[Rfam]
RNA sequence: AUAACAUGCAAGGGGAGCCAUAUGGCUGAGAUUUGAUUUUAUCAUAAACCCAUAGAACCUGAUCUAGUUAAUUCUAGCGUAGGGAAUGCAAUCUAAUAUAAAA
Numbered sequence: 001a002u003a004a005c006a007u008g009c010a011a012g013g014g015g016a017g018c019c020a021u022a023u024g025g026c027u028g029a030g031a032u033u034u035g036a037u038u039u040u041a042u043c044a045u046a047a048a049c050c051c052a053u054a055g056a057a058c059c060u061g062a063u064c065u066a067g068u069u070a071a072u073u074c075u076a077g078c079g080u081a082g083g084g085a086a087u088g089c090a091a092u093c094u095a096a097u098a099u100a101a102a103a
Stems, first nucleotide, its partner, number of pairs: 007090004012051003017026003034044004058083004064077004
RNA: TPP riboswitch aptamer (THI element)
Organism: Clostridium sp. SM-530-WT-3G